[Rfam]
RNA sequence: GCGCUCUUAAUUCAAUUCAGUAGAAUGUGAGUCUCCAAAGCUCGAUGUCAUAGCUUCAAAUCUUAUAGAGCGUG
Dot-bracket structure: (((((((..((((.........)))).(((((.......))))).....((((.........))))))))))).
Numbered sequence: 001g002c003g004c005u006c007u008u009a010a011u012u013c014a015a016u017u018c019a020g021u022a023g024a025a026u027g028u029g030a031g032u033c034u035c036c037a038a039a040g041c042u043c044g045a046u047g048u049c050a051u052a053g054c055u056u057c058a059a060a061u062c063u064u065a066u067a068g069a070g071c072g073u074g
Stems, first nucleotide, its partner, number of pairs: 001073007010026004028044005050066004
Rfam assigns this 74-nucleotide RNA sequence from Camellia sinensis to the family "tRNA". The family's consensus secondary structure is taken from published work. Taxonomically the source falls in Camellia (Eukaryota, Spermatophyta, Pentapetalae, Ericales). It scores 46 bits against the family's covariance model.